A member of the RNA family "Manganese Mn2+ riboswitch aptamer (yybP-ykoY)" from Bordetella sp. N, 212 nucleotides long. From the family's description: This RNA was originally discovered in E. coli during a large scale screen and was named SraF. The family was later found to exist upstream of related families of protein genes in many bacteria, including the the yybP and ykoK genes in B. subtilis. The specific functions of these proteins are unknown, but this structured RNA element may be involved in their genetic regulation as a riboswitch. NCBI's taxonomy places the organism under Bacteria, Pseudomonadati, Betaproteobacteria, Alcaligenaceae, Bordetella.
RNA sequence: GCCGUGUUCAUUGGGGAGUAGCCAUCCUUAUCCCCAAGGAGUUUGCGUCAACAUACUUGGUGGUUCUUACCCCAUGGCGUAAACGGCAGCCUUCCGUCACGGGAUUUUCCCGUCAACGGUGGCCCAGCCAGGCGAGACCUUUGGCCACGACGCGCUACCCUGCCGGGCGAGCCGCGUCGUCGCGCCAUUGGCUAUCCGCUCGUCCGGCUGUU
Number, nucleotide and partner (000 for none) at each position: 001g000002c000003c000004g000005u000006g000007u000008u000009c000010a000011u000012u000013g000014g000015g000016g000017a000018g000019u000020a000021g000022c000023c000024a000025u000026c039027c038028u037029u000030a000031u000032c000033c000034c000035c000036a000037a028038g027039g026040a000041g084042u083043u082044u081045g080046c079047g078048u077049c076050a075051a000052c000053a000054u000055a000056c000057u000058u074059g073060g072061u000062g070063g000064u000065u000066c000067u000068u000069a000070c062071c000072c060073c059074a058075u050076g049077g048078c047079g046080u045081a044082a043083a042084c041085g212086g211087c210088a209089g208090c207091c206092u000093u000094c000095c000096g000097u000098c000099a000100c000101g000102g000103g000104a000105u000106u000107u000108u000109c000110c000111c000112g000113u000114c000115a000116a000117c000118g000119g000120u000121g000122g000123c000124c000125c000126a000127g000128c000129c000130a000131g000132g000133c000134g000135a000136g000137a000138c000139c000140u000141u000142u000143g000144g000145c000146c000147a000148c000149g000150a000151c000152g000153c000154g000155c000156u000157a000158c000159c000160c000161u000162g000163c000164c000165g000166g000167g000168c000169g000170a000171g000172c000173c000174g000175c000176g000177u000178c000179g000180u000181c000182g000183c000184g000185c000186c000187a000188u000189u000190g000191g000192c000193u000194a000195u000196c000197c000198g000199c000200u000201c000202g000203u000204c000205c000206g091207g090208c089209u088210g087211u086212u085